Description:
This 67-nucleotide RNA from Novilysobacter arseniciresistens belongs to the Rfam family "int-alpA RNA". It scores 67 bits against the family's covariance model.

RNA sequence: CCCGCGCCUAGCCCGACGGGGCGAAAAGCCGGUCACCCUGCCGGCCUGGCGCGGACCUUCUCAGGGG
Numbered sequence: 001c002c003c004g005c006g007c008c009u010a011g012c013c014c015g016a017c018g019g020g021g022c023g024a025a026a027a028g029c030c031g032g033u034c035a036c037c038c039u040g041c042c043g044g045c046c047u048g049g050c051g052c053g054g055a056c057c058u059u060c061u062c063a064g065g066g067g
Stems, first nucleotide, its partner, number of pairs: 002054007011022004028045005036067004
Acidobacteria (1 example), Planctomycetes (1 example), Proteobacteria.